[Rfam]
RNA sequence: AGGAGUCCUACAGGAGCGAACUGAGAUCACGUGUGGGCAUUCAUAUGGACACUCAUUGUGCUUGUGUUCUUGUGUGUUAGAUGUGUUCUCAGGUCGCCCCUGUGGGACUUCC
Number, nucleotide and partner (000 for none) at each position: 001a000002g000003g000004a000005g000006u000007c106008c105009u000010a000011c102012a101013g100014g099015a000016g097017c096018g095019a094020a000021c000022u000023g090024a089025g088026a087027u000028c085029a084030c083031g082032u081033g000034u000035g000036g000037g000038c000039a000040u000041u000042c000043a000044u000045a000046u000047g000048g000049a000050c000051a000052c000053u000054c000055a000056u000057u000058g000059u000060g000061c000062u000063u000064g000065u000066g000067u000068u000069c000070u000071u000072g000073u000074g000075u000076g000077u000078u000079a000080g000081a032082u031083g030084u029085g028086u000087u026088c025089u024090c023091a000092g000093g000094u019095c018096g017097c016098c000099c014100c013101u012102g011103u000104g000105g008106g007107a000108c000109u000110u000111c000112c000